The family of this 149-nucleotide RNA sequence from Duffyella gerundensis is "STAXI RNA".
It scores 76 bits against the family's covariance model.
The source organism's lineage runs through Bacteria, Pseudomonadati, Gammaproteobacteria, Erwiniaceae and Duffyella.
[Rfam]
RNA sequence: CGUUGUCUCCGGACAACCACCAAUGGUCUCGUAGCUUGAGAUGACCGCCUUCGGGUAGCUGCAAAAGAACACUUCCCAAGCCUGAAAGGAAGUACACGUAAAGUGUGGUACAUCUGCUCACCUCUGGAAGCAGAUAUCGUCAGUUUUCG
Numbered sequence: 001c002g003u004u005g006u007c008u009c010c011g012g013a014c015a016a017c018c019a020c021c022a023a024u025g026g027u028c029u030c031g032u033a034g035c036u037u038g039a040g041a042u043g044a045c046c047g048c049c050u051u052c053g054g055g056u057a058g059c060u061g062c063a064a065a066a067g068a069a070c071a072c073u074u075c076c077c078a079a080g081c082c083u084g085a086a087a088g089g090a091a092g093u094a095c096a097c098g099u100a101a102a103g104u105g106u107g108g109u110a111c112a113u114c115u116g117c118u119c120a121c122c123u124c125u126g127g128a129a130g131c132a133g134a135u136a137u138c139g140u141c142a143g144u145u146u147u148c149g
Stems, first nucleotide, its partner, number of pairs: 002017006025046004031062006047056003071093005080109003094106003113134005124149001136145001138143001